[Rfam]
RNA: Small nucleolar RNA SNORD115
RNA sequence: GGAUCAAAGAUGAGAACCCAUAUUAUCUUCUACAGAAGUGAUGACCUAAAAAUUAUGCUCAGAAAUUUUACACUGAAGCCC
Numbered sequence: 001g002g003a004u005c006a007a008a009g010a011u012g013a014g015a016a017c018c019c020a021u022a023u024u025a026u027c028u029u030c031u032a033c034a035g036a037a038g039u040g041a042u043g044a045c046c047u048a049a050a051a052a053u054u055a056u057g058c059u060c061a062g063a064a065a066u067u068u069u070a071c072a073c074u075g076a077a078g079c080c081c
Stems, first nucleotide, its partner, number of pairs: 001081002004078001005075002009071001